Shown here is a 113-nucleotide RNA sequence from Thermanaerothrix daxensis, a member of the family "TPP riboswitch aptamer (THI element)". The match comes from Rfam's covariance-model search (64 bits). Taxonomically the source falls in Thermanaerothrix (Bacteria, Chloroflexota, Anaerolineales, Anaerolineaceae).

RNA sequence: GCAUAGACAACGGGGAGCCCGGUGAGGCCGGGCUGAGAGGAGGGCCGUCCAGCCCUCGACCCGCAGAACCUGAUCCGGGUAAUGCCGGCGGAGGGACGAUAACCUCAGGUUAA
Numbered sequence: 001g002c003a004u005a006g007a008c009a010a011c012g013g014g015g016a017g018c019c020c021g022g023u024g025a026g027g028c029c030g031g032g033c034u035g036a037g038a039g040g041a042g043g044g045c046c047g048u049c050c051a052g053c054c055c056u057c058g059a060c061c062c063g064c065a066g067a068a069c070c071u072g073a074u075c076c077g078g079g080u081a082a083u084g085c086c087g088g089c090g091g092a093g094g095g096a097c098g099a100u101a102a103c104c105u106c107a108g109g110u111u112a113a
Base pairs, nucleotide, nucleotide: 007100011063012062013061014060017033018032019031020030021029040057041056042055043054044053069094070093071092075088076087077086078085